[Rfam]
RNA sequence: ACAGGGUGUUCCGAAAACCUGUAGAAAAGAGUAGGAG
Number, nucleotide and partner (000 for none) at each position: 001a000002c021003a020004g019005g018006g000007u000008g000009u000010u036011c035012c034013g000014a000015a000016a000017a000018c005019c004020u003021g002022u000023a000024g000025a000026a000027a000028a000029g000030a000031g000032u000033a000034g012035g011036a010037g000